[Rfam]
RNA sequence: GAAUGAAGUAAGCAUGGUAAUGUGCAUACAAUUUGAUUUGGUUCUCUAGGCCUGCUCUCGUUGAUGCCUUUAGGUUUGGAUUUGGGGGUAUGGUUCCGUAGCAAAACG
Numbered sequence: 001g002a003a004u005g006a007a008g009u010a011a012g013c014a015u016g017g018u019a020a021u022g023u024g025c026a027u028a029c030a031a032u033u034u035g036a037u038u039u040g041g042u043u044c045u046c047u048a049g050g051c052c053u054g055c056u057c058u059c060g061u062u063g064a065u066g067c068c069u070u071u072a073g074g075u076u077u078g079g080a081u082u083u084g085g086g087g088g089u090a091u092g093g094u095u096c097c098g099u100a101g102c103a104a105a106a107c108g
Stems, first nucleotide, its partner, number of pairs: 012025004040091001043088002050081001052079001054075003
RNA: Small nucleolar RNA snoR100